A member of the RNA family "Actinobacteria sRNA Ms_IGR-7" from Streptomyces agglomeratus, 119 nucleotides long. Rfam 15.1 lists 463 matches to the family in 194 species.
[Rfam]
RNA sequence: CGGAAGUGCCUUGCUGAUCCAGCGUGCUGGAAGCCUGAAGAACUCCCAUCAUCGCAGGUCACGAGGCACUUCCUCGUUUCUAGAAGAGUUAUCCACAGACGUCGGAUCGGUGGAUCAAG
Numbered sequence: 001c002g003g004a005a006g007u008g009c010c011u012u013g014c015u016g017a018u019c020c021a022g023c024g025u026g027c028u029g030g031a032a033g034c035c036u037g038a039a040g041a042a043c044u045c046c047c048a049u050c051a052u053c054g055c056a057g058g059u060c061a062c063g064a065g066g067c068a069c070u071u072c073c074u075c076g077u078u079u080c081u082a083g084a085a086g087a088g089u090u091a092u093c094c095a096c097a098g099a100c101g102u103c104g105g106a107u108c109g110g111u112g113g114a115u116c117a118a119g
Stems, first nucleotide, its partner, number of pairs: 002073012015061003019057001022055003025051002028048001030046001032044002101116001102113003
Dot-bracket structure: .((((((((((((.(((.(..(((((.(.(.((.........)).).).)).))).).)))))))))))))))...........................((((......)))..)...

It is annotated as a small RNA. The base pairs follow the family's consensus structure.